[Rfam]
Nucleotides: 071
Base pairs, nucleotide, nucleotide: 004068005067008064009063010062011061012060013059014058015056016055017054019053020052021051022050023049026048027047028046029045030044031043032042
Number, partner (000 for none) and nucleotide at each position: 001000g002000c003000c004068a005067u006000c007000c008064c009063c010062a011061g012060a013059u014058a015056c016055a017054a018000u019053g020052g021051a022050c023049a024000a025000u026048g027047u028046g029045c030044u031043a032042u033000u034000a035000u036000a037000a038000u039000u040000g041000u042032g043031u044030a045029g046028u047027a048026u049023u050022g051021u052020c053019c054017u055016u056015g057000c058014u059013g060012u061011u062010u063009g064008g065000a066000c067005a068004u069000a070000g071000u